Shown here is a 63-nucleotide sequence, a member of the family "Trypanosomatid snoRNA TB9Cs1H2". Gene Ontology terms of the family: nucleolus and RNA processing. By type it is an H/ACA-box small nucleolar RNA. The match comes from Rfam's covariance-model search (38 bits). Rfam 15.1 lists 53 matches to the family in 20 species.

[Rfam]
RNA sequence: AACGGGGCAGUCCGAGGCUCUUGUAUUCCUUCUCGGCGACCUUUCUGGUGGCGCCGGAGGACA
Numbered sequence: 001a002a003c004g005g006g007g008c009a010g011u012c013c014g015a016g017g018c019u020c021u022u023g024u025a026u027u028c029c030u031u032c033u034c035g036g037c038g039a040c041c042u043u044u045c046u047g048g049u050g051g052c053g054c055c056g057g058a059g060g061a062c063a
Base pairs, nucleotide, nucleotide: 003056004055005054007052008051015043016042017041